[Rfam]
A member of the RNA family "mir-27 microRNA precursor family" from Chrysolophus pictus, 72 nucleotides long. Taxonomically the source falls in Chrysolophus (Eukaryota, Archosauria, Theropoda, Coelurosauria). The family has 82 seed sequences and 1,440 matches in Rfam 15.1. For this family Rfam cites "The developmental miRNA profiles of zebrafish as determined by small RNA cloning" (Chen et al., Genes Dev, 2005). The family's consensus secondary structure was predicted with RNAalifold. Its family is annotated with RISC complex and miRNA-mediated post-transcriptional gene silencing in the Gene Ontology. The match comes from Rfam's covariance-model search (57 bits).
RNA sequence: CCGUGGCGCAGGGCUUGGCGCAGCUGUGAACAGUUCCCGUCGUGUUCACAGUGGCUAAGUUCCGCGUCCCGA
Numbered sequence: 001c002c003g004u005g006g007c008g009c010a011g012g013g014c015u016u017g018g019c020g021c022a023g024c025u026g027u028g029a030a031c032a033g034u035u036c037c038c039g040u041c042g043u044g045u046u047c048a049c050a051g052u053g054g055c056u057a058a059g060u061u062c063c064g065c066g067u068c069c070c071g072a
Stems, first nucleotide, its partner, number of pairs: 011062009026049007